[Rfam]
RNA sequence: GUAACUAGGAGAUAGCACUUAGUGAACAAAGGGGUAAUGAUAAAUCAUGUCGUGUGAUUUAUUAGAACGUGCGAAUCACUAGUUAAUUAACAUCUUCAAUAUUAUUACUUACUUUCCUUUCUAUGCCGACUAGUUAAGCUAGUCGGUUUUUUA
Numbered sequence: 001g002u003a004a005c006u007a008g009g010a011g012a013u014a015g016c017a018c019u020u021a022g023u024g025a026a027c028a029a030a031g032g033g034g035u036a037a038u039g040a041u042a043a044a045u046c047a048u049g050u051c052g053u054g055u056g057a058u059u060u061a062u063u064a065g066a067a068c069g070u071g072c073g074a075a076u077c078a079c080u081a082g083u084u085a086a087u088u089a090a091c092a093u094c095u096u097c098a099a100u101a102u103u104a105u106u107a108c109u110u111a112c113u114u115u116c117c118u119u120u121c122u123a124u125g126c127c128g129a130c131u132a133g134u135u136a137a138g139c140u141a142g143u144c145g146g147u148u149u150u151u152u153a
Base pairs, nucleotide, nucleotide: 002085003084004083005082013074015072016071017070018069020067028120029119030118031117032116033115034114038064039063040062041061042060043059044058045057046056047055048054125147126146127145128144129143130142131141132140133139